[Rfam]
This 133-nucleotide RNA sequence from Marmota monax belongs to the Rfam family "Small nucleolar RNA SNORA42/SNORA80 family". The source organism's lineage runs through Eukaryota, Opisthokonta, Gnathostomata, Boreoeutheria and Marmota. The family's consensus secondary structure was predicted with RNAalifold. A search with the family's covariance model found it, with a score of 121 bits. Rfam's curators write: The members of this family belong to the H/ACA class of snoRNAs that guide the sites of modification of uridines to pseudouridines. Human ACA42 (SNORA42) was cloned from HeLa cells by immunoprecipitation with anti-GAR1 antibody.
RNA sequence: GCAUGGGUUUGGAUUUAUGUAGGCUUGUCCCUGGGCCUCUUAUAGUGUCCCAUGCCAGGGCAAACUAUGCCCCCAAACCGUUGCCUGGCCUCUGUGUCCACAGGCUGCUGGCACUGAAGUGGGUCGCACAGUG
Numbered sequence: 001g002c003a004u005g006g007g008u009u010u011g012g013a014u015u016u017a018u019g020u021a022g023g024c025u026u027g028u029c030c031c032u033g034g035g036c037c038u039c040u041u042a043u044a045g046u047g048u049c050c051c052a053u054g055c056c057a058g059g060g061c062a063a064a065c066u067a068u069g070c071c072c073c074c075a076a077a078c079c080g081u082u083g084c085c086u087g088g089c090c091u092c093u094g095u096g097u098c099c100a101c102a103g104g105c106u107g108c109u110g111g112c113a114c115u116g117a118a119g120u121g122g123g124u125c126g127c128a129c130a131g132u133g
Base pairs, nucleotide, nucleotide: 001055002054003053004052005050006049007048008047015045016044017043018042019040021038022037023036024034025033068126069125071123072122073121079116080115084111085110086107087106088105089104090103091102
Dot-bracket structure: ((((((((......(((((.(((((.......)).))).).)))).)))).))))............((.(((.....((...((((((((..........))))))..))...))....))).)).......